[Rfam]
RNA sequence: AAAGGCGCAACCCCCCUCAAGCCCUGUAGCUAUGGGAUUGCAGGGGUGUGAGCCAUAAAACUGGUAUUAUUAUUGAGUUCAAAAUUUAAUAAAUUACCCUAGCGCUUAAAGACACUCACCUCCCGCACAAACAGUCCUGGGUUGGUCUUUUUGGGGUGUUGAGCGUCGGAUGGAGCAGGGACUGGAGAUGGUUUGUCACCC
Numbered sequence: 001a002a003a004g005g006c007g008c009a010a011c012c013c014c015c016c017u018c019a020a021g022c023c024c025u026g027u028a029g030c031u032a033u034g035g036g037a038u039u040g041c042a043g044g045g046g047u048g049u050g051a052g053c054c055a056u057a058a059a060a061c062u063g064g065u066a067u068u069a070u071u072a073u074u075g076a077g078u079u080c081a082a083a084a085u086u087u088a089a090u091a092a093a094u095u096a097c098c099c100u101a102g103c104g105c106u107u108a109a110a111g112a113c114a115c116u117c118a119c120c121u122c123c124c125g126c127a128c129a130a131a132c133a134g135u136c137c138u139g140g141g142u143u144g145g146u147c148u149u150u151u152u153g154g155g156g157u158g159u160u161g162a163g164c165g166u167c168g169g170a171u172g173g174a175g176c177a178g179g180g181a182c183u184g185g186a187g188a189u190g191g192u193u194u195g196u197c198a199c200c201c
Stems, first nucleotide, its partner, number of pairs: 016036003021031001023029001037047003062075005097180004104176004111167003115163004122156003128153004136145002
Rfam assigns this 201-nucleotide RNA sequence from Polynucleobacter antarcticus to the family "carA ncRNA motif". Its family is annotated with regulation of gene expression in the Gene Ontology. The organism belongs to Polynucleobacter, within Bacteria. Rfam's curators write: carA ncRNA motif was reported as a Strong Riboswitch Candidate CarA ncRNA motif was located upstream of carA gene which codes for the small subunit of carbamoyl phosphate synthase, which is an enzyme that catalyses the first committed step in pyrimidine and arginine biosynthesis. It is proposed as a possible cis-regulatory element. The family's RNA type in Rfam is cis-regulatory element.